[Rfam]
RNA sequence: UUAUAUUGCAGAUAGGAAACUAUGCUGUAUAUCUGUGUCACUGAAUGAAAGUUUAAGCGUUAUCUAAGAACGCCAGCCACAGAGCCACCCUUAUGGUGGUAUUUUUUUUG
Numbered sequence: 001u002u003a004u005a006u007u008g009c010a011g012a013u014a015g016g017a018a019a020c021u022a023u024g025c026u027g028u029a030u031a032u033c034u035g036u037g038u039c040a041c042u043g044a045a046u047g048a049a050a051g052u053u054u055a056a057g058c059g060u061u062a063u064c065u066a067a068g069a070a071c072g073c074c075a076g077c078c079a080c081a082g083a084g085c086c087a088c089c090c091u092u093a094u095g096g097u098g099g100u101a102u103u104u105u106u107u108u109u110g
Stems, first nucleotide, its partner, number of pairs: 007029005012023003032083006041076003044053003057073005084100006
Overview: A member of the RNA family "DUF3800-I RNA", 110 nucleotides long. It is annotated as a small RNA. Actinobacteria, Firmicutes, Fusobacteria, Proteobacteria (1 example), Tenericutes (2 examples).